RNA sequence: AUCGCUUCUCGGCUCUUUUGAGCUAAGAUCAAGUGUAGUAUCUGUUCUUCUCAGUUUAAUACCUGGGACGGAAACGAUUCGUUUCCUCUAUGUAUUAAUCGGAUUUUUGAACAUGGAGUAUGGUGCUGGAGCUUGCUCCACCCUGCUCACGGGUUGUCCUGGUAUUGCAGUACCUCCAGGCUCGGCCCACACCCC
Numbered sequence: 001a002u003c004g005c006u007u008c009u010c011g012g013c014u015c016u017u018u019u020g021a022g023c024u025a026a027g028a029u030c031a032a033g034u035g036u037a038g039u040a041u042c043u044g045u046u047c048u049u050c051u052c053a054g055u056u057u058a059a060u061a062c063c064u065g066g067g068a069c070g071g072a073a074a075c076g077a078u079u080c081g082u083u084u085c086c087u088c089u090a091u092g093u094a095u096u097a098a099u100c101g102g103a104u105u106u107u108u109g110a111a112c113a114u115g116g117a118g119u120a121u122g123g124u125g126c127u128g129g130a131g132c133u134u135g136c137u138c139c140a141c142c143c144u145g146c147u148c149a150c151g152g153g154u155u156g157u158c159c160u161g162g163u164a165u166u167g168c169a170g171u172a173c174c175u176c177c178a179g180g181c182u183c184g185g186c187c188c189a190c191a192c193c194c195c
Base pairs, nucleotide, nucleotide: 007028008027009026011024012023013022014021049068050067051066052065053064054063070086071085072084073083074082075081076080116148117147118146119145120144122142123141128139129138130137131136151188152187153186154185155184156183158180159179160178161177162176
About this RNA:
The family of this 195-nucleotide RNA from Ciona savignyi is "U2 spliceosomal RNA". The sequence is in the family's curated seed alignment. The organism belongs to Ciona, within Eukaryota. On this family, see Newby and Greenbaum, RNA 2001: "A conserved pseudouridine modification in eukaryotic U2 snRNA induces a change in branch-site architecture". Rfam describes the family as follows. U2 is a small nuclear RNA (snRNA) component of the spliceosome (involved in pre-mRNA splicing). Complementary binding between U2 snRNA (in an area lying towards the 5' end but 3' to hairpin I) and the branchpoint sequence (BPS) of the intron results the bulging out of an unpaired adenosine, on the BPS, which initiates a nucleophilic attack at the intronic 5' splice site, thus starting the first of two transesterification reactions that mediate splicing.